[Rfam]
RNA sequence: UAACCCUUGUCGGACCUUUGUGGGUGUUCGCCUUUUCGGUGAAGUUACUGAAUGCUUCUUCACCGGGUUAACAUCUACAGAGGUCCUAAAGGGUUC
Numbered sequence: 001u002a003a004c005c006c007u008u009g010u011c012g013g014a015c016c017u018u019u020g021u022g023g024g025u026g027u028u029c030g031c032c033u034u035u036u037c038g039g040u041g042a043a044g045u046u047a048c049u050g051a052a053u054g055c056u057u058c059u060u061c062a063c064c065g066g067g068u069u070a071a072c073a074u075c076u077a078c079a080g081a082g083g084u085c086c087u088a089a090a091g092g093g094u095u096c
Base pairs, nucleotide, nucleotide: 003094004093005092006091007090008089012086013085014084015083016082017081018080019079020078021077022076023075024074025073026072027071028070030068031067032066037065038064039063040062041061042060043059044058
RNA: mir-42 microRNA precursor family
Organism: Caenorhabditis briggsae